Shown here is an 89-nucleotide sequence from Jeotgalibacillus campisalis, a member of the family "pan motif".
It is annotated as a cis-regulatory element.
[Rfam]
RNA sequence: UGGGCAGUAUCUUAGGAACUGCACCGUUAAAUGUAUGAGAAAAUUCCAUAAAAAAGUCUGCCUUGAUCAUUAGUGACAGGGACAGAGGA
Numbered sequence: 001u002g003g004g005c006a007g008u009a010u011c012u013u014a015g016g017a018a019c020u021g022c023a024c025c026g027u028u029a030a031a032u033g034u035a036u037g038a039g040a041a042a043a044u045u046c047c048a049u050a051a052a053a054a055a056g057u058c059u060g061c062c063u064u065g066a067u068c069a070u071u072a073g074u075g076a077c078a079g080g081g082a083c084a085g086a087g088g089a
Stems, first nucleotide, its partner, number of pairs: 001026003004022005010017002058085003061081005067076003